Notes: The record is an 84-nucleotide sequence from Gadus morhua, which matches "mir-221 microRNA precursor family" in Rfam. The family's consensus secondary structure was predicted with RNAalifold. For this family Rfam cites "Parallel DNA pyrosequencing unveils new zebrafish microRNAs" (Soares et al., BMC Genomics, 2009). The organism belongs to Gadus, within Eukaryota.
[Rfam]
RNA sequence: GUUAUUCUGGACCCGGCAUACAUUGUAGGAUUCUGUGUGGGUGAAGCGACAGCUACAUUGUCUGCUGGGUUUCAGACGGCACCC
Numbered sequence: 001g002u003u004a005u006u007c008u009g010g011a012c013c014c015g016g017c018a019u020a021c022a023u024u025g026u027a028g029g030a031u032u033c034u035g036u037g038u039g040g041g042u043g044a045a046g047c048g049a050c051a052g053c054u055a056c057a058u059u060g061u062c063u064g065c066u067g068g069g070u071u072u073c074a075g076a077c078g079g080c081a082c083c084c
Base pairs, nucleotide, nucleotide: 013068014067015066016065017064018063020061021060022059024057025056026055027054028053033052034051035050036049